[Rfam]
Nucleotides: 045
Base pairs, nucleotide, nucleotide: 006021007020008019009018010017011016
Number, partner (000 for none) and nucleotide at each position: 001000c002000a003000a004000u005000c006021g007020g008019c009018c010017c011016u012000u013000u014000u015000c016011a017010g018009g019008g020007c021006c022000a023000c024000u025000a026000a027000u028000u029000u030000a031000c032000u033000a034000u035000u036000u037000c038000a039000a040000c041000g042000u043000c044000u045000a

Histone 3' UTR stem-loop: a 45-nucleotide sequence from Trichomalopsis sarcophagae. Rfam links the family to the GO term mRNA 3'-end processing by stem-loop binding and cleavage. It is annotated as a cis-regulatory element. Rfam 15.1 lists 44,596 matches to the family in 976 species. Pairs were carried over by alignment from the consensus structure, which is taken from published work.